This 32-nucleotide RNA sequence from Ixodes scapularis belongs to the Rfam family "Iron response element II". A reference for the family is Koeller et al. (1989), "A cytosolic protein binds to structural elements within the iron regulatory region of the transferrin receptor mRNA", Proc Natl Acad Sci U S A. The family has 30 seed sequences and 5,197 matches in Rfam 15.1. IRE, TFRC, SLC40A1, SDHB, SLC11A2, CDC42BPA, ACO2, ALAS2_H.SAPIENS, CDC14A, EPAS1, ALAS2, qoxD, Hao1, NDUFS1, transferrin, Aconitate. It is one of the family's seed sequences.

RNA sequence: AUGCAAUCCUCGGCAGUGUCCUGAGACUGCGU
Numbered sequence: 001a002u003g004c005a006a007u008c009c010u011c012g013g014c015a016g017u018g019u020c021c022u023g024a025g026a027c028u029g030c031g032u
Base pairs, nucleotide, nucleotide: 001032002031003030004029005028007026009025010024011023012021013020014018